[Rfam]
RNA sequence: AAGAGUGCAGUGAUGAUGAUUUUUAUAUUGUGGACUAGAGUUUCUGAUGUGGGCUUCUUCUCCCACUAGUUGAAGACUAGCCCUUGGCUGUCUGAGCAUUCUU
Numbered sequence: 001a002a003g004a005g006u007g008c009a010g011u012g013a014u015g016a017u018g019a020u021u022u023u024u025a026u027a028u029u030g031u032g033g034a035c036u037a038g039a040g041u042u043u044c045u046g047a048u049g050u051g052g053g054c055u056u057c058u059u060c061u062c063c064c065a066c067u068a069g070u071u072g073a074a075g076a077c078u079a080g081c082c083c084u085u086g087g088c089u090g091u092c093u094g095a096g097c098a099u100u101c102u103u
Stems, first nucleotide, its partner, number of pairs: 001103008041075004048068001049066005
Dot-bracket structure: ((((((((................................((((...((((((........))))).)...))))....................))))))))

The family of this 103-nucleotide sequence from Punica granatum is "Small nucleolar RNA Z157/R69/R10". Pairs were carried over by alignment from the consensus structure, which was predicted with PFOLD. Rfam classes the family as a C/D-box small nucleolar RNA. The family has 10 seed sequences and 836 matches in Rfam 15.1.